This 95-nucleotide RNA from Roseburia sp. CAG:303 belongs to the Rfam family "ZMP/ZTP riboswitch aptamer (pfl RNA motif)". NCBI's taxonomy places the organism under Bacteria, Bacillota, Lachnospirales, Lachnospiraceae, Roseburia. A search with the family's covariance model found it, with a score of 45 bits. The family's consensus secondary structure is taken from published work. Its family is annotated with regulation of purine nucleotide biosynthetic process and one-carbon metabolic process in the Gene Ontology.
RNA sequence: AUAAGUCUGUAUGACUGGCGGAAAACUGAGAAAUCAGUGGCAGGAAAACUGCAGGGAGUACAGAGUGUUAAGAGCCGGCCGCCUGGGUGAGUACG
Numbered sequence: 001a002u003a004a005g006u007c008u009g010u011a012u013g014a015c016u017g018g019c020g021g022a023a024a025a026c027u028g029a030g031a032a033a034u035c036a037g038u039g040g041c042a043g044g045a046a047a048a049c050u051g052c053a054g055g056g057a058g059u060a061c062a063g064a065g066u067g068u069u070a071a072g073a074g075c076c077g078g079c080c081g082c083c084u085g086g087g088u089g090a091g092u093a094c095g
Base pairs, nucleotide, nucleotide: 004066006064007063008062009061010060011059012058015055016054017083018082019081020080021079040052041051042050043049074088075087076086